[Rfam]
RNA sequence: UGACCAAUGAAAUCAAGAAUGGGUGGGACCUGUGAAUAGAAGACUGGGCGACCCACACUUGGUUUCACUGGUCU
Dot-bracket structure: .(((((..((((((.((...((((....(((..............)))..))))...)).))))))..))))).

The record is a 74-nucleotide RNA from Phrynocephalus forsythii, which matches "mir-551 microRNA precursor family" in Rfam. NCBI's taxonomy places the organism under Eukaryota, Teleostomi, Sarcopterygii, Agamidae, Phrynocephalus.